[Rfam]
RNA sequence: UGCGCAGGGCGUGCUUCAUCACGAUCGUCGGGAACGACACCCCCUUGAGGCGUGCAGUCCUGAUAUACUGCGCGGUCAUCACCUCGGUCAUCGAGGCCCGGGUCAUCCGGGCGAUAUAGCCCAUGCCGUAAAGCGCGAUGGUCAGCACCGGCAGGAAGAAGUUCUCGAAGGUGGGAUUG
Dot-bracket structure: ....((..((((..((...((......(.((......(.(((...(((..((.((.((.(.(.....).).)).)......(((((.....)))))).))..)))...))).)......)).)))..).)..))))..)).....((((.((.((((....)))).....)).))..))